[Rfam]
RNA sequence: UGUAGACAUCGCGGGAGCUCCGAGCACGGGGCUGAGAGGGCGCUGAGACGGCUGCGCCGACCGCCGAACCUGUUACCGGGUAAUGCCGGCGUAGGGAGUUGGGUCUCCAUGACC
Numbered sequence: 001u002g003u004a005g006a007c008a009u010c011g012c013g014g015g016a017g018c019u020c021c022g023a024g025c026a027c028g029g030g031g032c033u034g035a036g037a038g039g040g041c042g043c044u045g046a047g048a049c050g051g052c053u054g055c056g057c058c059g060a061c062c063g064c065c066g067a068a069c070c071u072g073u074u075a076c077c078g079g080g081u082a083a084u085g086c087c088g089g090c091g092u093a094g095g096g097a098g099u100u101g102g103g104u105c106u107c108c109a110u111g112a113c114c
Stems, first nucleotide, its partner, number of pairs: 007101002010098001011064004017032005039058005069095004076089004

Rfam assigns this 114-nucleotide sequence from Streptomyces sp. Z26 to the family "TPP riboswitch aptamer (THI element)". The organism belongs to Streptomyces, within Bacteria. Gene Ontology term of the family: thiamine pyrophosphate binding.